[Rfam]
RNA: MIR2275 microRNA precursor family
Organism: Zea mays
RNA sequence: GCACUAAAAGUGAGAGUUGGAGGAAAGAAAACUAAUCGGCUAUCAGAUUCUGCAAUGGCUUGAUGCAUAAACAUGAUUGCCGUUCCGUUUGUUUUCCUCUAAUAUCUCACCUUCA
Numbered sequence: 001g002c003a004c005u006a007a008a009a010g011u012g013a014g015a016g017u018u019g020g021a022g023g024a025a026a027g028a029a030a031a032c033u034a035a036u037c038g039g040c041u042a043u044c045a046g047a048u049u050c051u052g053c054a055a056u057g058g059c060u061u062g063a064u065g066c067a068u069a070a071a072c073a074u075g076a077u078u079g080c081c082g083u084u085c086c087g088u089u090u091g092u093u094u095u096c097c098u099c100u101a102a103u104a105u106c107u108c109a110c111c112u113u114c115a
Base pairs, nucleotide, nucleotide: 005115007113008112011109012108013107014106016103017102018101019100020099021098023096024095025094026093027092029090030089032087